[Rfam]
Shown here is a 132-nucleotide RNA sequence from Camelus dromedarius, a member of the family "Small nucleolar RNA SNORA72". It scores 117 bits against the family's covariance model. The literature on the family includes a 1997 paper in Genes Dev by Ganot et al., "The family of box ACA small nucleolar RNAs is defined by an evolutionarily conserved secondary structure and ubiquitous sequence elements essential for RNA accumulation". Its family is annotated with nucleolus and RNA processing in the Gene Ontology. About the family: U72 is a member of the H/ACA class of snoRNAs. Taxonomically the source falls in Camelus (Eukaryota, Deuterostomia, Teleostomi, Theria).
RNA sequence: CUGUGAAUAUUCUCACUACUCUGAUUUUGUAAUAAUCAGGACAUGCUAAAUAUUUGCUAUACUUAGACCAUGACUGUGUCCCCAGACCUACUUCUUUCCUUAGAUCUGAUUUUAUAAAUGCUGGUGAUAAAU
Numbered sequence: 001c002u003g004u005g006a007a008u009a010u011u012c013u014c015a016c017u018a019c020u021c022u023g024a025u026u027u028u029g030u031a032a033u034a035a036u037c038a039g040g041a042c043a044u045g046c047u048a049a050a051u052a053u054u055u056g057c058u059a060u061a062c063u064u065a066g067a068c069c070a071u072g073a074c075u076g077u078g079u080c081c082c083c084a085g086a087c088c089u090a091c092u093u094c095u096u097u098c099c100u101u102a103g104a105u106c107u108g109a110u111u112u113u114a115u116a117a118a119u120g121c122u123g124g125u126g127a128u129a130a131a132u
Stems, first nucleotide, its partner, number of pairs: 003057003017043001020040007067125004072121001083108004088103003